[Rfam]
RNA sequence: AAAUAUGAAUAACUCCGAUUUAGCUCUUCUAAAGCAUCAGCUAUGGGGGCUAAACGCAUGCAUUAAUGCUGUAGGGUAGAGGGGAAACCCGGAUACCUCCCAACCUUGGAAAGGAGUUGCUCACGUAAAAAA
Numbered sequence: 001a002a003a004u005a006u007g008a009a010u011a012a013c014u015c016c017g018a019u020u021u022a023g024c025u026c027u028u029c030u031a032a033a034g035c036a037u038c039a040g041c042u043a044u045g046g047g048g049g050c051u052a053a054a055c056g057c058a059u060g061c062a063u064u065a066a067u068g069c070u071g072u073a074g075g076g077u078a079g080a081g082g083g084g085a086a087a088c089c090c091g092g093a094u095a096c097c098u099c100c101c102a103a104c105c106u107u108g109g110a111a112a113g114g115a116g117u118u119g120c121u122c123a124c125g126u127a128a129a130a131a132a
Base pairs, nucleotide, nucleotide: 003126004125006123011118012117013116014115015114016113019054020053021052022051023050024049025048027047028046029045033042034041035040056069057068058067059066074098075097076096077095078094081090082089083088099109100108
Shown here is a 132-nucleotide RNA sequence from Syntrophaceticus schinkii, a member of the family "Molybdenum/Tungsten riboswitch aptamer (Moco RNA motif)". Pairs were carried over by alignment from the consensus structure, which is taken from published work. For this family Rfam cites "in molybdenum cofactor and tungsten cofactor metabolism" (Regulski et al., Mol Microbiol, 2008).